[Rfam]
RNA sequence: UCCGCCGUGAGGCGGAAUCUGAAGGAAGCUAGAGGCAAACACUUGCACUGACGAACAGGAAUCUCAUAAGAAGGCUGGUUUGGGAUGGACGAGCUUGCAAAACAAAGUAAAGUCCGAUACUGCCCGAAUCCCAUACAGUAAAUGAGGCAGUGACAUGAGUGGAAGGUUAUCGCG
Numbered sequence: 001u002c003c004g005c006c007g008u009g010a011g012g013c014g015g016a017a018u019c020u021g022a023a024g025g026a027a028g029c030u031a032g033a034g035g036c037a038a039a040c041a042c043u044u045g046c047a048c049u050g051a052c053g054a055a056c057a058g059g060a061a062u063c064u065c066a067u068a069a070g071a072a073g074g075c076u077g078g079u080u081u082g083g084g085a086u087g088g089a090c091g092a093g094c095u096u097g098c099a100a101a102a103c104a105a106a107g108u109a110a111a112g113u114c115c116g117a118u119a120c121u122g123c124c125c126g127a128a129u130c131c132c133a134u135a136c137a138g139u140a141a142a143u144g145a146g147g148c149a150g151u152g153a154c155a156u157g158a159g160u161g162g163a164a165g166g167u168u169a170u171c172g173c174g
Stems, first nucleotide, its partner, number of pairs: 001016006030172001032170001035167002040161006046152005062147006074139003079135001081133005087115004093108004
RNA: Group II catalytic intron D1-D4-3
Organism: Tetragenococcus muriaticus